[Rfam]
RNA sequence: UAUGAAUCUAGCGGAAACACUUCCGGACAGGCUUGGGUCUGGACACCAGUGUGCGGAAGUGCUUCUGCUAAGUUUUUA
Numbered sequence: 001u002a003u004g005a006a007u008c009u010a011g012c013g014g015a016a017a018c019a020c021u022u023c024c025g026g027a028c029a030g031g032c033u034u035g036g037g038u039c040u041g042g043a044c045a046c047c048a049g050u051g052u053g054c055g056g057a058a059g060u061g062c063u064u065c066u067g068c069u070a071a072g073u074u075u076u077u078a
Base pairs, nucleotide, nucleotide: 001078002077004075005074006073007072009070010069011068012067013066014065015064016063018061019060020059021058022057023056024055025054027052028051029050032049033048
Dot-bracket structure: ((.((((.((((((((.((((((((.(((..((..............))))).)))))))).)))))))).)))).))
Rfam assigns this 78-nucleotide RNA sequence from Cavia porcellus to the family "mir-147 microRNA precursor family". On this family, see Ahn et al., Mol Hum Reprod 2010: "MicroRNA transcriptome in the newborn mouse ovaries determined by massive parallel sequencing". Its family is annotated with miRNA-mediated post-transcriptional gene silencing and RISC complex in the Gene Ontology.